RNA sequence: AAGCACAAUUAAUAAUAAUUCCGUAUAAUUUCAAGAAUUGGCUUGAAAGUUUCUACCGAUUAGCCGGAAACUAAUCAACUACGGGAUAGCAAGAUAAACAU
Numbered sequence: 001a002a003g004c005a006c007a008a009u010u011a012a013u014a015a016u017a018a019u020u021c022c023g024u025a026u027a028a029u030u031u032c033a034a035g036a037a038u039u040g041g042c043u044u045g046a047a048a049g050u051u052u053c054u055a056c057c058g059a060u061u062a063g064c065c066g067g068a069a070a071c072u073a074a075u076c077a078a079c080u081a082c083g084g085g086a087u088a089g090c091a092a093g094a095u096a097a098a099c100a101u
Stems, first nucleotide, its partner, number of pairs: 018087008029048007058076006
Annotation: The family of this 101-nucleotide RNA sequence from Orenia marismortui is "Purine riboswitch aptamer". Rfam describes the family as follows. Riboswitches are metabolite binding domains within certain messenger RNAs that serve as precision sensors for their corresponding targets. A search with the family's covariance model found it, with a score of 78 bits.